[Rfam]
RNA sequence: UGAAAGGGUCGGUUGGCUAAAUAGGCCACGCCCACCCUCGUCUGCUGGGUGCUGUAUGGCUAUCAAGACAUAUGGCCGACAUAACUUGUAGAAAGCAAUAGGGUUGGCUAGCUCGGCCGACCCUCCAU
Number, nucleotide and partner (000 for none) at each position: 001u000002g000003a000004a000005a000006g000007g000008g080009u079010c078011g077012g076013u000014u028015g027016g026017c025018u024019a000020a000021a000022u000023a000024g018025g017026c016027c015028a014029c051030g050031c049032c048033c047034a046035c000036c000037c000038u000039c000040g000041u000042c000043u000044g000045c000046u034047g033048g032049g031050u030051g029052c075053u074054g073055u072056a071057u070058g069059g000060c000061u000062a000063u000064c000065a000066a000067g000068a000069c058070a057071u056072a055073u054074g053075g052076c012077c011078g010079a009080c008081a000082u000083a000084a000085c000086u000087u000088g000089u000090a000091g000092a000093a000094a000095g000096c000097a000098a000099u000100a124101g123102g122103g121104u120105u119106g118107g117108c116109u115110a000111g000112c000113u000114c000115g109116g108117c107118c106119g105120a104121c103122c102123c101124u100125c000126c000127a000128u000

U11 spliceosomal RNA: a 128-nucleotide RNA sequence from Gossypium trilobum. NCBI's taxonomy places the organism under Eukaryota, Streptophyta, Malvales, Malvaceae, Gossypium. On this family, see Montzka and Steitz, Proc Natl Acad Sci U S A 1988: "Additional low-abundance human small nuclear ribonucleoproteins: U11, U12, etc". The family has 72 seed sequences and 2,595 matches in Rfam 15.1. The family's RNA type in Rfam is spliceosomal small nuclear RNA. It scores 64 bits against the family's covariance model.